[Rfam]
RNA sequence: CGGCAGGCCGUUGUCAGCGAGGCUUAGCCUGUAGUGGCUCUGUCCUUUCCUAAAGCGUCUGCUAGAGAGAAGUGAGGUGGUUUGAGGCCCUGCUGUGUCUCAUUCAUGGCAAGGUUAUAGGUAAAUCUCACACAAAC
Numbered sequence: 001c002g003g004c005a006g007g008c009c010g011u012u013g014u015c016a017g018c019g020a021g022g023c024u025u026a027g028c029c030u031g032u033a034g035u036g037g038c039u040c041u042g043u044c045c046u047u048u049c050c051u052a053a054a055g056c057g058u059c060u061g062c063u064a065g066a067g068a069g070a071a072g073u074g075a076g077g078u079g080g081u082u083u084g085a086g087g088c089c090c091u092g093c094u095g096u097g098u099c100u101c102a103u104u105c106a107u108g109g110c111a112a113g114g115u116u117a118u119a120g121g122u123a124a125a126u127c128u129c130a131c132a133c134a135a136a137c
Stems, first nucleotide, its partner, number of pairs: 003062006020046003026039004073130005088114002091111003095107003
RNA: Small nucleolar RNA SNORA9